[Rfam]
Rfam assigns this 244-nucleotide sequence from Nonomuraea sp. C10 to the family "raiA RNA". It is annotated as a riboswitch. Pairs were carried over by alignment from the consensus structure, which is taken from published work.

RNA sequence: CCCGUUCGGGUCCGUGGUUGCGCAGAGCCGGGGCUCCCGGCUCCGCUAGCCGAUGCCAGCCGCAGGCGAAACGGCCCACGUAAGGCGACUUUUCGUCGUCCGAUCACGGUGCGGCUUAGGGGUAAGUCCUGCCUCCCCGGGGGUCCAGAUGUCCCCCGCCAGGAGAGAAGGGCGGUAGUGGCAUCAGAGCUGCGAAACCCUCAGCAGGCGGAUGUGGGGUCGAAGACCAGGUCGGCCGGACGGG
Dot-bracket structure: (((((((((..((((((((.................................((([.(((((((.]........((...(...((((((.....))))))...)..[)))))))))...........(((((((((.........................))))...((((.....((.((......)).))....))))..)))))....)))......]..)))))...))))))))))))